[Rfam]
RNA sequence: GGAUGUGCCGGUGGAAUUGGCUGCGACUCCCAUUAUACCACCAUUGAUCGCUAGCGUUGGUUAGAUCGGCUGAUCUGGUUGGUAAGCAGGCGACGUCCCCCGUUCCCCGCACGGAUCCGCGUCCGGUCUCGCCGAUGCCCCGCGCUCGGAGGGGCCGAGAGGCUUAUCGCACCGCACCACCGCACGCACCACGCGACACGGCGCACGGGUUUAAAUAACGGAGCUGCGAGUACCCCCCGCCUAGACCAAACAAGGGAGACGAGACGGCGAUGGCCAAGGAGAGAGGGGCAAGAAGCGCUUCAUACAUACACAUUGCACAUCCAACGCGGCGCUGCACGUGGCAGUUUGCCUUGUU
Number, nucleotide and partner (000 for none) at each position: 001g118002g117003a116004u000005g112006u111007g110008c109009c000010g108011g107012u000013g000014g105015a104016a000017u000018u000019g100020g099021c000022u000023g000024c000025g097026a096027c095028u000029c090030c089031c000032a000033u086034u085035a000036u000037a000038c082039c081040a000041c078042c077043a076044u000045u000046g075047a074048u073049c072050g070051c069052u068053a000054g000055c000056g000057u000058u000059g000060g000061u000062u000063a000064g000065a000066u000067c000068g052069g051070c050071u000072g049073a048074u047075c046076u043077g042078g041079u000080u000081g039082g038083u000084a000085a034086g033087c000088a000089g030090g029091c000092g000093a000094c000095g027096u026097c025098c000099c020100c019101c000102g000103u000104u015105c014106c000107c011108c010109g008110c007111a006112c005113g000114g000115a000116u003117c002118c001119g000120c000121g000122u000123c000124c000125g000126g189127u188128c186129u000130c000131g183132c149133c148134g147135a146136u000137g145138c144139c000140c000141c000142g000143c000144g138145c137146u135147c134148g133149g132150a000151g000152g000153g000154g000155c000156c000157g000158a000159g000160a000161g000162g000163c000164u000165u000166a000167u000168c000169g000170c000171a000172c000173c000174g000175c000176a000177c000178c000179a000180c000181c000182g000183c131184a000185c000186g128187c000188a127189c126190c000191a000192c000193g000194c000195g000196a000197c000198a000199c000200g000201g000202c000203g000204c000205a000206c000207g000208g000209g000210u000211u000212u000213a000214a000215a000216u000217a000218a300219c000220g298221g000222a000223g296224c295225u294226g000227c292228g000229a000230g000231u000232a000233c000234c288235c287236c286237c285238c000239g000240c283241c000242u000243a000244g000245a000246c000247c000248a000249a000250a000251c000252a000253a000254g000255g000256g000257a000258g000259a000260c000261g000262a000263g000264a000265c000266g000267g000268c000269g000270a000271u000272g000273g000274c000275c000276a000277a000278g000279g000280a000281g000282a000283g240284a000285g237286g236287g235288g234289c000290a000291a000292g227293a000294a225295g224296c223297g000298c220299u000300u218301c000302a000303u000304a000305c000306a000307u000308a000309c000310a000311c000312a000313u000314u000315g000316c000317a000318c000319a000320u000321c000322c000323a355324a354325c353326g352327c000328g350329g349330c348331g345332c344333u343334g342335c341336a000337c000338g000339u000340g000341g335342c334343a333344g332345u331346u000347u000348g330349c329350c328351u000352u326353g325354u324355u323

Shown here is a 355-nucleotide sequence from Eptatretus burgeri, a member of the family "7SK RNA". It is annotated as a non-coding RNA gene. The family's consensus secondary structure is taken from published work. From the family's description: 7SK was discovered as an abundant small nuclear RNA in the mid-70s but a possible function has only recently been suggested. Two independent studies have found that 7SK RNA binds the CDK9/cyclin T complex (known as elongation factor P-TEFb). P-TEFb activates transcription by phosphorylating the C-terminal domain of RNA polymerase II. This process is negatively regulated by the 7SK RNP. The secondary structure of 7SK RNA shown here was proposed by Wasserman and Steitz on the basis of chemical modification and enzymatic cleavage experiments. The match comes from Rfam's covariance-model search (120 bits).